Annotation: The record is an 83-nucleotide sequence from Vigna angularis, which matches "mir-156 microRNA precursor family" in Rfam. A search with the family's covariance model found it, with a score of 68 bits. Rfam 15.1 lists 1,401 matches to the family in 221 species. A reference for the family is Reinhart et al. (2002), "MicroRNAs in plants", Genes Dev. Rfam's curators write: This family represents the plant microRNA (miRNA) precursor mir-156. NCBI's taxonomy places the organism under Eukaryota, Viridiplantae, Spermatophyta, Pentapetalae, Vigna angularis. Gene Ontology terms of the family: miRNA-mediated post-transcriptional gene silencing and RISC complex.
[Rfam]
RNA sequence: UUGACAGAAGAGAGUGAGCACACAGAAGCAACUGGUAUAGUUAUAUGCUGUUACUUUUGCGUGCUUACUUCUCUUUCUGUCAA
Number, nucleotide and partner (000 for none) at each position: 001u083002u082003g081004a080005c079006a078007g077008a076009a075010g073011a072012g071013a069014g068015u067016g066017a065018g064019c063020a062021c061022a000023c059024a058025g057026a000027a000028g000029c000030a000031a000032c000033u000034g000035g000036u000037a000038u000039a000040g000041u000042u000043a000044u000045a000046u000047g000048c000049u000050g000051u000052u000053a000054c000055u000056u000057u025058u024059g023060c000061g021062u020063g019064c018065u017066u016067a015068c014069u013070u000071c012072u011073c010074u000075u009076u008077c007078u006079g005080u004081c003082a002083a001